[Rfam]
RNA sequence: CUACCAAAAGUUGGUUUGGGGUAAGGUUUAUAGUAGUCUUUGCCAGCUCGAGUUGUGGGGGAAUAAAGAUCACACUCCAUAGUGAACCAUGCUGUUAUAUAUAGUUCAUUACUACUUUGUGGCCUAGAAG
Numbered sequence: 001c002u003a004c005c006a007a008a009a010g011u012u013g014g015u016u017u018g019g020g021g022u023a024a025g026g027u028u029u030a031u032a033g034u035a036g037u038c039u040u041u042g043c044c045a046g047c048u049c050g051a052g053u054u055g056u057g058g059g060g061g062a063a064u065a066a067a068g069a070u071c072a073c074a075c076u077c078c079a080u081a082g083u084g085a086a087c088c089a090u091g092c093u094g095u096u097a098u099a100u101a102u103a104g105u106u107c108a109u110u111a112c113u114a115c116u117u118u119g120u121g122g123c124c125u126a127g128a129a130g
Stems, first nucleotide, its partner, number of pairs: 004058003012055006018048002020044004025037001027035001067125002070122005081110007089102003
The family of this 130-nucleotide sequence from Propithecus coquereli is "Small nucleolar RNA SNORA4".
The family's consensus secondary structure was predicted with PFOLD.
It is annotated as an H/ACA-box small nucleolar RNA.
ACA4 is a member of the H/ACA class of snoRNA that guide the sites of modification of uridines to pseudouridines.
NCBI's taxonomy places the organism under Eukaryota, Vertebrata, Theria, Lemuriformes, Propithecus.